RNA sequence: AUUUUCCUUCGGGGCAGGGUGAGGCCGAGUGCCAAUUCCCGAUCGGUGGUGACGCGAACAACUGCGAAGUCCACGAGCCGAAAGGCAGGAACUGGUGAGAUUCCAGUACCGACGGUAUAGUCCGGAUAGAAGAAGGAAGCC
Numbered sequence: 001a002u003u004u005u006c007c008u009u010c011g012g013g014g015c016a017g018g019g020u021g022a023g024g025c026c027g028a029g030u031g032c033c034a035a036u037u038c039c040c041g042a043u044c045g046g047u048g049g050u051g052a053c054g055c056g057a058a059c060a061a062c063u064g065c066g067a068a069g070u071c072c073a074c075g076a077g078c079c080g081a082a083a084g085g086c087a088g089g090a091a092c093u094g095g096u097g098a099g100a101u102u103c104c105a106g107u108a109c110c111g112a113c114g115g116u117a118u119a120g121u122c123c124g125g126a127u128a129g130a131a132g133a134a135g136g137a138a139g140c141c
Stems, first nucleotide, its partner, number of pairs: 003139008017040003042121002044111002046074004069109002079085001091107005113124003
Rfam assigns this 141-nucleotide RNA sequence from Paenalicyclobacillus ferrooxydans to the family "FMN riboswitch aptamer (RFN element)".
The match comes from Rfam's covariance-model search (95 bits).
Rfam links the family to the GO term FMN binding.